[Rfam]
RNA sequence: AAUAAACGAACAAGCGGUGGAAACCCAUGCAGCCGGAUGAUUGGCUAGUCGCCAAUCAUAGCAGUUCGCCCAAGAGCGCAAUUGUGAGACGU
Number, nucleotide and partner (000 for none) at each position: 001a000002a000003u000004a000005a000006a092007c091008g090009a000010a000011c000012a000013a000014g033015c032016g030017g028018u027019g026020g025021a000022a000023a000024c000025c020026c019027a018028u017029g000030c016031a000032g015033c014034c000035g000036g000037a059038u058039g057040a056041u055042u054043g053044g052045c051046u000047a000048g000049u000050c000051g045052c044053c043054a042055a041056u040057c039058a038059u037060a000061g085062c084063a083064g082065u081066u080067c078068g077069c076070c000071c000072a000073a000074g000075a000076g069077c068078g067079c000080a066081a065082u064083u063084g062085u061086g000087a000088g000089a000090c008091g007092u006
RNA: NiCo-AnGGAG riboswitch aptamer